[Rfam]
RNA sequence: AGUAAAUAAGGCGAUGGAGUUCGCCAUAACCGCCGAACGGCUGAUGACUCCUACCAGCGA
Numbered sequence: 001a002g003u004a005a006a007u008a009a010g011g012c013g014a015u016g017g018a019g020u021u022c023g024c025c026a027u028a029a030c031c032g033c034c035g036a037a038c039g040g041c042u043g044a045u046g047a048c049u050c051c052u053a054c055c056a057g058c059g060a
Stems, first nucleotide, its partner, number of pairs: 010025004016051006032041003
Background:
The family of this 60-nucleotide sequence from Paenibacillus athensensis is "Fluoride riboswitch aptamer (crcB RNA motif)". The match comes from Rfam's covariance-model search (63 bits). Taxonomically the source falls in Paenibacillus (Bacteria, Bacillati, Bacillota, Caryophanales). Rfam links the family to the GO terms positive regulation of gene expression and response to fluoride.